[Rfam]
Nucleotides: 067
Stems, first nucleotide, its partner, number of pairs: 003065003009059008018050003023045004029040002
Number, partner (000 for none) and nucleotide at each position: 001000g002000u003065c004064u005063c006000c007000u008000c009059g010058u011057g012056u013055u014054c015053a016052c017000u018050g019049u020048g021000g022000g023045c024044u025043u026042u027000c028000a029040u030039g031000u032000u033000u034000u035000g036000g037000u038000u039030c040029a041000u042026a043025a044024g045023g046000c047000a048020c049019g050018c051000g052016g053015u054014g055013a056012a057011u058010g059009c060000c061000a062000a063005g064004a065003g066000c067000g
The record is a 67-nucleotide RNA from Nezara viridula, which matches "mir-124 microRNA precursor family" in Rfam. Rfam 15.1 lists 2,215 matches to the family in 905 species. The base pairs follow the family's consensus structure, which was predicted with PFOLD. It scores 61 bits against the family's covariance model.